The record is a 102-nucleotide RNA from Antarcticibacterium flavum, which matches "SAM riboswitch aptamer (S box leader)" in Rfam. Taxonomically the source falls in Antarcticibacterium (Bacteria, Pseudomonadati, Bacteroidota, Flavobacteriaceae). The SAM riboswitch is found upstream of a number of genes which code for proteins involved in methionine or cysteine biosynthesis in Gram-positive bacteria. Gene Ontology term of the family: regulation of gene expression.
RNA sequence: UCGUUAUCAAGAAAGGUGGAGGGAUUAGACCCGUUGAAACCUUGGCAACCCUCCCCAGGAGAAGGUGCUACAUUCUACCACGUCCGCGUGGAUAGAUAACAA
Numbered sequence: 001u002c003g004u005u006a007u008c009a010a011g012a013a014a015g016g017u018g019g020a021g022g023g024a025u026u027a028g029a030c031c032c033g034u035u036g037a038a039a040c041c042u043u044g045g046c047a048a049c050c051c052u053c054c055c056c057a058g059g060a061g062a063a064g065g066u067g068c069u070a071c072a073u074u075c076u077a078c079c080a081c082g083u084c085c086g087c088g089u090g091g092a093u094a095g096a097u098a099a100c101a102a
Base pairs, nucleotide, nucleotide: 001102003100004099005098006097007096008095013043014042015041016040017039021032022031023030026077027076028075029074044069045068046067047066049065050064051061052060053059054058073094078091079090080089081088082087